This 194-nucleotide RNA from Bucorvus abyssinicus belongs to the Rfam family "Connexin-43 internal ribosome entry site (IRES)".
[Rfam]
RNA sequence: AACUUUUACGAGGGAUCAGCACUUUUCUUUCAUUAGUGGGGAAGGAAGGAUGAGAAACACCAAGCGGCCGUAGACUUCUAAAGUUUAAAUAGACAGGUCGGAGUGCCUGAACGUGCUCUUCCCUUUCACUGUAACCCGCCAAAGAAGAGUUCUGAUCCAGUUUCACUGCUGAUCAGCAAGGGUAAGUGGAAAGU
Number, nucleotide and partner (000 for none) at each position: 001a000002a000003c019004u018005u000006u000007u015008a000009c013010g000011a000012g000013g009014g000015a007016u000017c000018a004019g003020c000021a000022c000023u000024u000025u000026u000027c000028u000029u146030u145031c144032a000033u142034u141035a000036g139037u000038g137039g136040g135041g132042a000043a130044g129045g000046a000047a000048g000049g125050a124051u000052g122053a000054g121055a120056a119057a000058c000059a000060c000061c000062a000063a000064g000065c000066g000067g000068c000069c000070g000071u000072a000073g099074a098075c097076u096077u095078c000079u000080a000081a000082a000083g000084u000085u000086u000087a000088a000089a000090u000091a000092g000093a000094c000095a077096g076097g075098u074099c073100g000101g116102a000103g114104u113105g112106c000107c000108u000109g000110a000111a000112c105113g104114u103115g000116c101117u000118c000119u056120u055121c054122c052123c000124u050125u049126u000127c000128a000129c044130u043131g000132u041133a000134a000135c040136c039137c038138g000139c036140c000141a034142a033143a000144g031145a030146a029147g000148a000149g000150u000151u000152c000153u000154g000155a000156u190157c189158c188159a187160g000161u182162u181163u180164c000165a000166c176167u175168g174169c000170u000171g000172a000173u000174c168175a167176g166177c000178a000179a000180g163181g162182g161183u000184a000185a000186g000187u159188g158189g157190a156191a000192a000193g000194u000

Pairs were carried over by alignment from the consensus structure, which is taken from published work.